[Rfam]
The record is a 35-nucleotide sequence from Pipistrellus kuhlii, which matches "Iron response element I" in Rfam. Lineage of the source: Eukaryota > Metazoa > Eutheria > Boreoeutheria > Pipistrellus. The base pairs follow the family's consensus structure, which is taken from published work. It is annotated as a cis-regulatory element.
RNA sequence: UGGUUUCCUGCUUCAACCGUGCGUGGACGGAACCA
Numbered sequence: 001u002g003g004u005u006u007c008c009u010g011c012u013u014c015a016a017c018c019g020u021g022c023g024u025g026g027a028c029g030g031a032a033c034c035a
Base pairs, nucleotide, nucleotide: 001035002034003033004032005031007030008029010028012027013026014025015024017021